RNA: Enterococcus sRNA 68 (Lacto-3 RNA)
RNA sequence: UGCGAUGAGUCGAGAAAAGACCAGAUGGUGACUAGUUCAUCAUUUCGCUGCGGCGGCAAGUGGUUUACUUUUCGAUGCAGGACACAUAUUCUAGCGUAUUCUAGAGUGCCUACUACUGUAUAUUGUGGAAUAU
Numbered sequence: 001u002g003c004g005a006u007g008a009g010u011c012g013a014g015a016a017a018a019g020a021c022c023a024g025a026u027g028g029u030g031a032c033u034a035g036u037u038c039a040u041c042a043u044u045u046c047g048c049u050g051c052g053g054c055g056g057c058a059a060g061u062g063g064u065u066u067a068c069u070u071u072u073c074g075a076u077g078c079a080g081g082a083c084a085c086a087u088a089u090u091c092u093a094g095c096g097u098a099u100u101c102u103a104g105a106g107u108g109c110c111u112a113c114u115a116c117u118g119u120a121u122a123u124u125g126u127g128g129a130a131u132a133u
Base pairs, nucleotide, nucleotide: 019065020064021063022062023061024044025043026042027041028040029039030038031037045056046055047054048053081110083108084107085106090105091104092103093102094101120133121132122131123130124129